[Rfam]
RNA sequence: CGUUGCUGCCCUUCUUGGGCGUUUCCUCCCUAAACUUCGGGCCGCUCGCAAGAGUGGCCUUUUUUCUUGCCUGCC
Numbered sequence: 001c002g003u004u005g006c007u008g009c010c011c012u013u014c015u016u017g018g019g020c021g022u023u024u025c026c027u028c029c030c031u032a033a034a035c036u037u038c039g040g041g042c043c044g045c046u047c048g049c050a051a052g053a054g055u056g057g058c059c060u061u062u063u064u065u066c067u068u069g070c071c072u073g074c075c
Stems, first nucleotide, its partner, number of pairs: 008020004039060009